The family of this 57-nucleotide RNA is "nhaA-I RNA". Rfam's curators put it in the seed alignment. Acidobacteria, Alphaproteobacteria, Betaproteobacteria and Gammaproteobacteria, Verrucomicrobia, cand. division NC10.
[Rfam]
RNA sequence: GGGUGUUCGCUGCGAUAUGAGCGGGCAGGUUCACAUGUGUUGGUCGGGCCGCCAGCA
Numbered sequence: 001g002g003g004u005g006u007u008c009g010c011u012g013c014g015a016u017a018u019g020a021g022c023g024g025g026c027a028g029g030u031u032c033a034c035a036u037g038u039g040u041u042g043g044u045c046g047g048g049c050c051g052c053c054a055g056c057a
Stems, first nucleotide, its partner, number of pairs: 005026007038057007